[Rfam]
RNA sequence: AACAAUUUUUCCCGCGUCCCGUGGCGUUUUAAAAAACUCCCUAUUUUUGGAAAGAUUGGAAAGAUUCUUUCCAAAAAUCGGGACUUUUUUAAAACGCCGCGGGAUGCGGGAAAAAUUGUUGA
Numbered sequence: 001a002a003c004a005a006u007u008u009u010u011c012c013c014g015c016g017u018c019c020c021g022u023g024g025c026g027u028u029u030u031a032a033a034a035a036a037c038u039c040c041c042u043a044u045u046u047u048u049g050g051a052a053a054g055a056u057u058g059g060a061a062a063g064a065u066u067c068u069u070u071c072c073a074a075a076a077a078u079c080g081g082g083a084c085u086u087u088u089u090u091a092a093a094a095c096g097c098c099g100c101g102g103g104a105u106g107c108g109g110g111a112a113a114a115a116u117u118g119u120u121g122a
Stems, first nucleotide, its partner, number of pairs: 001120035
Rfam assigns this 122-nucleotide sequence from Pipistrellus kuhlii to the family "mir-9261 microRNA precursor family". The base pairs follow the family's consensus structure, which was predicted with RNAalifold. Taxonomically the source falls in Pipistrellus (Eukaryota, Opisthokonta, Vertebrata, Gnathostomata). Rfam links the family to the GO terms miRNA-mediated post-transcriptional gene silencing and RISC complex.